[Rfam]
RNA sequence: UCCUUAUCAAGAGAGGUGGAGGGACUGCGCCCUAUGAAACCCGGCAACCGGCAUUUGCACGGUGCCAAAUCCUGCAGGAUUAAUUCCUGAGAGAUGAGGA
Number, nucleotide and partner (000 for none) at each position: 001u100002c099003c098004u097005u096006a095007u094008c093009a000010a000011g000012a000013g042014a000015g041016g040017u039018g000019g000020a000021g032022g031023g030024a000025c000026u074027g073028c000029g071030c023031c022032c021033u000034a000035u000036g000037a000038a000039a017040c016041c015042c013043g066044g065045c064046a063047a000048c062049c061050g000051g058052c057053a000054u000055u000056u000057g052058c051059a000060c000061g049062g048063u046064g045065c044066c043067a000068a000069a000070u092071c029072c000073u027074g026075c089076a088077g087078g086079a085080u000081u000082a000083a000084u000085u079086c078087c077088u076089g075090a000091g000092a070093g008094a007095u006096g005097a004098g003099g002100a001
The record is a 100-nucleotide RNA sequence from Thermoclostridium stercorarium, which matches "SAM riboswitch aptamer (S box leader)" in Rfam. Its family is annotated with regulation of gene expression in the Gene Ontology. A search with the family's covariance model found it, with a score of 86 bits. Taxonomically the source falls in Thermoclostridium stercorarium subsp. stercorarium (Bacteria, Clostridia, Oscillospiraceae, Thermoclostridium stercorarium).